[Rfam]
RNA sequence: GGGGCAAUGAUGAACACUUUACCCUAAUUCUAGAGAUGCGUUGUCUUAAAAGUCAUGCACAAUAUAGUUACGCUUAGGACCC
Number, nucleotide and partner (000 for none) at each position: 001g082002g081003g080004g000005c000006a074007a000008u072009g071010a000011u000012g000013a000014a000015c000016a000017c000018u000019u000020u000021a000022c000023c000024c000025u000026a000027a000028u000029u000030c000031u000032a000033g000034a000035g000036a000037u000038g000039c000040g000041u000042u000043g000044u000045c000046u000047u000048a000049a000050a000051a000052g000053u000054c000055a000056u000057g000058c000059a000060c000061a000062a000063u000064a000065u000066a000067g000068u000069u000070a000071c009072g008073c000074u006075u000076a000077g000078g000079a000080c003081c002082c001

The family of this 82-nucleotide sequence from Carlito syrichta is "Small nucleolar RNA SNORD115". Gene Ontology terms of the family: nucleolus and RNA processing. By type it is a C/D-box small nucleolar RNA. On this family, see Cavaille et al., Proc Natl Acad Sci U S A 2000: "Identification of brain-specific and imprinted small nucleolar RNA genes exhibiting an unusual genomic organization". The family has 32 seed sequences and 3,387 matches in Rfam 15.1.